A member of the RNA family "Archaeal large subunit ribosomal RNA" from Metallosphaera cuprina, 402 nucleotides of a longer RNA. The sequence is in the family's curated seed alignment. Pairs were carried over by alignment from the consensus structure, which is taken from published work. Lineage of the source: Archaea > Thermoproteati > Thermoproteota > Thermoprotei > Metallosphaera cuprina.

Nucleotides: 402
Base pairs, nucleotide, nucleotide: 016034017033018032019031020030021029035399036398037397038396043378044377045376046375049358050357054078055077056076057075058074059073063071064070085354086353087352089123090122094117095116096115097114098113099112100110101109102108127144128143129142130141131140147350148349149348150347151346152345153344154343181329182328183327187317188316189315190314191313192312193311194310195309198305199304200303201302202301204221205220206219207218208217226276228274229273237267238266239265240264241263247257248256249255288293364373365372380394381393382392383391
Number, partner (000 for none) and nucleotide at each position: 001000g002000g003000c004000a005000g006000u007000a008000a009000u010000a011000g012000c013000g014000a015000a016034g017033g018032a019031g020030g021029g022000u023000g024000a025000g026000a027000a028000u029021c030020c031019c032018u033017c034016c035399c036398g037397c038396c039000g040000a041000a042000a043378g044377g045376g046375c047000a048000a049358g050357g051000g052000u053000u054078u055077c056076c057075c058074g059073g060000c061000a062000a063071u064070g065000g066000u067000c068000g069000u070064c071063a072000g073059c074058c075057g076056g077055g078054a079000g080000u081000u082000a083000g084000c085354c086353g087352g088000u089123c090122c091000u092000a093000a094117g095116g096115c097114a098113g099112g100110g101109c102108c103000u104000a105000a106000c107000u108102g109101g110100u111000a112099c113098c114097u115096g116095u117094c118000g119000a120000a121000a122090g123089g124000g125000a126000a127144a128143g129142g130141g131140g132000u133000u134000a135000a136000u137000a138000u139000u140131c141130c142129c143128c144127u145000g146000c147350c148349a149348c150347g151346g152345a153344g154343g155000u156000a157000g158000g159000u160000g161000c162000g163000g164000u165000a166000a167000c168000g169000c170000u171000g172000c173000g174000g175000g176000g177000a178000u179000c180000u181329c182328c183327u184000g185000a186000c187317g188316g189315a190314u191313u192312g193311g194310g195309g196000u197000a198305a199304g200303g201302a202301a203000a204221g205220u206219g207218g208217a209000g210000c211000c212000a213000u214000c215000g216000c217208u218207c219206c220205a221204u222000c223000c224000a225000a226276g227000u228274g229273u230000a231000c232000c233000u234000a235000a236000g237267c238266c239265c240264c241263u242000g243000g244000a245000g246000a247257g248256c249255c250000g251000u252000a253000a254000u255249g256248g257247u258000g259000a260000g261000a262000a263241g264240g265239g266238g267237g268000c269000u270000a271000a272000g273229g274228c275000u276226c277000g278000a279000u280000g281000g282000g283000c284000c285000u286000u287000c288293c289000g290000u291000u292000a293288g294000g295000g296000a297000g298000g299000u300000u301202u302201u303200c304199c305198u306000g307000a308000u309195c310194c311193c312192u313191g314190g315189u316188c317187c318000c319000c320000a321000u322000g323000a324000a325000a326000a327183g328182g329181g330000a331000g332000a333000u334000c335000u336000c337000a338000a339000c340000g341000a342000u343154c344153c345152u346151c347150c348149g349148u350147g351000u352087c353086c354085g355000u356000a357050c358049c359000u360000a361000g362000a363000a364373c365372c366000g367000a368000c369000a370000c371000u372365g373364g374000u375046g376045c377044c378043c379000c380394u381393g382392g383391g384000u385000g386000a387000g388000a389000a390000g391383c392382c393381c394380a395000a396038g397037g398036c399035g400000u401000c402000u